Source information
The family of this 129-nucleotide sequence from Indicator maculatus is "Small nucleolar RNA SNORA24".
RNA sequence: AUCCAUGACUCCAUGGGAGCUGCCCUGUGGCCGUCUCCCUUCCUAGGCAUGGAAGAGCAGUUCCUUGCUAAUUGGCAAAACUUUUACCCUCCUGUGGGUAUUAGUCGUUGACUGUAGCAAGUAACACGC
Dot-bracket structure: .((((((.......((((.(.(((....))).)..))))........))))))............((.(..(((((.(..((...((((......))))...))........)))..)))..).))...

Rfam describes the family as follows. ACA24 is a member of the H/ACA class of snoRNA that guide the sites of modification of uridines to pseudouridines. Rfam links the family to the GO terms nucleolus and RNA processing. Pairs were carried over by alignment from the consensus structure, which was predicted with RNAfold.